[Rfam]
This 73-nucleotide RNA from Camphora micrantha belongs to the Rfam family "mir-166 microRNA precursor family".
Rfam links the family to the GO terms RISC complex and miRNA-mediated post-transcriptional gene silencing.
It scores 68 bits against the family's covariance model.
From the family's description: This family represents the plant microRNA (miRNA) precursor mir-166.

Nucleotides: 073
Stems, first nucleotide, its partner, number of pairs: 001073005007067007016058001018056004024050008
Number, partner (000 for none) and nucleotide at each position: 001073u002072u003071u004070g005069a006000a007067g008066g009065g010064a011063a012062u013061g014000u015000u016058g017000g018056c019055u020054g021053g022000c023000u024050c025049g026048g027047g028046g029045c030044u031043u032000u033000c034000u035000u036000a037000g038000u039000a040000g041000g042000g043031a044030a045029g046028c047027u048026u049025c050024g051000g052000a053021c054020c055019a056018g057000g058016c059000u060000u061013c062012a063011u064010u065009c066008c067007c068000c069005u070004c071003a072002a073001a